[Rfam]
RNA sequence: CAACAACGAAAGGAGGUGGUCGAAUGUCUCAUUGUCUCACGCCGCGCGCGGCCCGUCGGAUGAGCCCGGCCUCCCCUCUGGCGGGGUCUGUCGCCUGACGAAGCCGUUCGCCGGCUGACAAUGGAAGGGCCGCUCCCGCGAGGGGGCGGCCCU
Number, nucleotide and partner (000 for none) at each position: 001c000002a000003a000004c000005a000006a000007c000008g000009a000010a000011a000012g000013g000014a000015g000016g021017u000018g000019g000020u000021c016022g000023a000024a000025u000026g000027u000028c000029u000030c123031a122032u121033u120034g119035u118036c117037u000038c000039a000040c000041g000042c000043c000044g000045c000046g000047c000048g000049c062050g061051g000052c000053c000054c000055g000056u000057c000058g000059g000060a000061u050062g049063a000064g000065c097066c000067c093068g000069g092070c000071c090072u000073c000074c086075c085076c084077u083078c000079u000080g000081g000082c000083g077084g076085g075086g074087u000088c000089u000090g071091u000092c069093g067094c000095c000096u000097g065098a000099c000100g000101a000102a000103g115104c114105c113106g112107u000108u000109c000110g000111c000112c106113g105114g104115c103116u000117g036118a035119c034120a033121a032122u031123g030124g000125a000126a153127g152128g151129g150130c149131c148132g147133c146134u145135c144136c143137c142138g000139c000140g000141a000142g137143g136144g135145g134146g133147c132148g131149g130150c129151c128152c127153u126
RNA: caulobacter sRNA CC2171